Small nucleolar RNA Z161/Z228: a 90-nucleotide RNA sequence from Malus domestica.
The family's RNA type in Rfam is C/D-box small nucleolar RNA.
A search with the family's covariance model found it, with a score of 58 bits.
Its Rfam clan is "SNORD35 clan".
The family's consensus secondary structure was predicted with PFOLD.

RNA sequence: AAAUCAGGUGAUGAAUUUGGAUUAAUCAUCUCACGACGGUCGUCUGAGACUCGGUGUCGAAGCUGAAACGAUCCUUUGCUUCUGAUGGUU
Dot-bracket structure: ((.(...........................................(((.....)))............................).))
Numbered sequence: 001a002a003a004u005c006a007g008g009u010g011a012u013g014a015a016u017u018u019g020g021a022u023u024a025a026u027c028a029u030c031u032c033a034c035g036a037c038g039g040u041c042g043u044c045u046g047a048g049a050c051u052c053g054g055u056g057u058c059g060a061a062g063c064u065g066a067a068a069c070g071a072u073c074c075u076u077u078g079c080u081u082c083u084g085a086u087g088g089u090u
Stems, first nucleotide, its partner, number of pairs: 001090002004087001048058003

A reference for the family is Chen et al. (2003), "The high diversity of snoRNAs in plants: identification and comparative study of 120 snoRNA genes from Oryza sativa", Nucleic Acids Res.